[Rfam]
RNA sequence: CGAUGACGUGUGGGAGAGCCUGCGCGUCUGCGCAGCGCCGAAGGGGCAACUCCUCCCCGGAACCUCUCAGGCCGCACGGACCACACGUACCAG
Numbered sequence: 001c002g003a004u005g006a007c008g009u010g011u012g013g014g015a016g017a018g019c020c021u022g023c024g025c026g027u028c029u030g031c032g033c034a035g036c037g038c039c040g041a042a043g044g045g046g047c048a049a050c051u052c053c054u055c056c057c058c059g060g061a062a063c064c065u066c067u068c069a070g071g072c073c074g075c076a077c078g079g080a081c082c083a084c085a086c087g088u089a090c091c092a093g
Stems, first nucleotide, its partner, number of pairs: 006088008020035004037072003040068002044066003050060002
Rfam assigns this 93-nucleotide RNA sequence from Solicola gregarius to the family "Glycine riboswitch aptamer". NCBI's taxonomy places the organism under Bacteria, Bacillati, Actinomycetota, Actinomycetes, Solicola.